RNA sequence: CUAGGUUGCUGAAUUAGAGAUCGGCACCUGUCUUAAUUUCAUUACCUGGAGUGACAUAAUGUCUCUAAAUGCUGAAACAAAAGCUAAUAUUGUUGUUGAGUUCGGUCGUAAUGCU
Numbered sequence: 001c002u003a004g005g006u007u008g009c010u011g012a013a014u015u016a017g018a019g020a021u022c023g024g025c026a027c028c029u030g031u032c033u034u035a036a037u038u039u040c041a042u043u044a045c046c047u048g049g050a051g052u053g054a055c056a057u058a059a060u061g062u063c064u065c066u067a068a069a070u071g072c073u074g075a076a077a078c079a080a081a082a083g084c085u086a087a088u089a090u091u092g093u094u095g096u097u098g099a100g101u102u103c104g105g106u107c108g109u110a111a112u113g114c115u
Base pairs, nucleotide, nucleotide: 007026008025009024010023011022012021047067048066049065050064051063